[Rfam]
RNA sequence: GGACCAUUAGUAUAGAGGUAGUAUAGAUGUUUCGGGUACAUCAGAUACGGAUUCAACUCCCGUAUGGCCCC
Numbered sequence: 001g002g003a004c005c006a007u008u009a010g011u012a013u014a015g016a017g018g019u020a021g022u023a024u025a026g027a028u029g030u031u032u033c034g035g036g037u038a039c040a041u042c043a044g045a046u047a048c049g050g051a052u053u054c055a056a057c058u059c060c061c062g063u064a065u066g067g068c069c070c071c
Base pairs, nucleotide, nucleotide: 001070002069004067005066006065007064010024011023012022013021026042027041028040029039030038047063048062049061050060